The family of this 118-nucleotide RNA sequence from Stenotrophomonas sp. BIIR7 is "Xanthomonadaceae sRNA asX1".
RNA sequence: CACCCAGGAUGGCAGGCGCCGUCAGGCGCUACGGAUCGGAAUUGGAACAGGGGCUGAUCCAUGCGCAUCCCGGGGAAGCAGAGGGGCCGGCAGUCGGGGGACUGUCGGCCCUGUUUUU
Numbered sequence: 001c002a003c004c005c006a007g008g009a010u011g012g013c014a015g016g017c018g019c020c021g022u023c024a025g026g027c028g029c030u031a032c033g034g035a036u037c038g039g040a041a042u043u044g045g046a047a048c049a050g051g052g053g054c055u056g057a058u059c060c061a062u063g064c065g066c067a068u069c070c071c072g073g074g075g076a077a078g079c080a081g082a083g084g085g086g087c088c089g090g091c092a093g094u095c096g097g098g099g100g101a102c103u104g105u106c107g108g109c110c111c112u113g114u115u116u117u118u
Stems, first nucleotide, its partner, number of pairs: 003074003007070005012064002015030004034060001035058005042051002083112013
Overview
The literature on the family includes a 2011 paper in Nucleic Acids Res by Schmidtke et al., "Genome-wide transcriptome analysis of the plant pathogen Xanthomonas identifies sRNAs with putative virulence functions". The source organism's lineage runs through Bacteria, Pseudomonadota, Gammaproteobacteria, Lysobacterales and Stenotrophomonas. It is annotated as a small RNA.